[Rfam]
RNA sequence: CAAAUAGCUGUCUAGGGUUCCGCUUCAGGUGGCCGACGGGAAAUAAGGCGAAACGUCCUUGCCGUCUGUCAUUCGCUGGUCUGGUCCGAGAGACGGCAUACAGCUUGCUUAUUUCAGUCAUGAAUAAAGCUGUAGCACACGGAAGGACAAAAGCCUGGGAGAU
Numbered sequence: 001c002a003a004a005u006a007g008c009u010g011u012c013u014a015g016g017g018u019u020c021c022g023c024u025u026c027a028g029g030u031g032g033c034c035g036a037c038g039g040g041a042a043a044u045a046a047g048g049c050g051a052a053a054c055g056u057c058c059u060u061g062c063c064g065u066c067u068g069u070c071a072u073u074c075g076c077u078g079g080u081c082u083g084g085u086c087c088g089a090g091a092g093a094c095g096g097c098a099u100a101c102a103g104c105u106u107g108c109u110u111a112u113u114u115c116a117g118u119c120a121u122g123a124a125u126a127a128a129g130c131u132g133u134a135g136c137a138c139a140c141g142g143a144a145g146g147a148c149a150a151a152a153g154c155c156u157g158g159g160a161g162a163u
Base pairs, nucleotide, nucleotide: 007097008096009095010094011093012092015087016086020084021083022081023078099134100133101132102131103130104129105128138158140161144156145155146154
RNA: Guanidine-I riboswitch aptamer